[Rfam]
This 90-nucleotide RNA from Weissella diestrammenae belongs to the Rfam family "TPP riboswitch aptamer (THI element)". A search with the family's covariance model found it, with a score of 76 bits. Its family is annotated with thiamine pyrophosphate binding in the Gene Ontology. Taxonomically the source falls in Weissella (Bacteria, Bacillota, Bacilli, Lactobacillales). About the family: Vitamin B(1) in its active form thiamin pyrophosphate (TPP) is an essential coenzyme that is synthesised by coupling of pyrimidine and thiazole moieties in bacteria.
RNA sequence: UUCAAUUAUCUGGGGUGCCAAUUUGGCUGAGAAAUACCCAUUGAACCUGAUGAUGGUAAUGCAUCCGAAGGGAGAUACAUCUUUUAAUUG
Dot-bracket structure: ......((((((((.(((((...))))......)..)))).....(((...((((......))))...)))..)))).............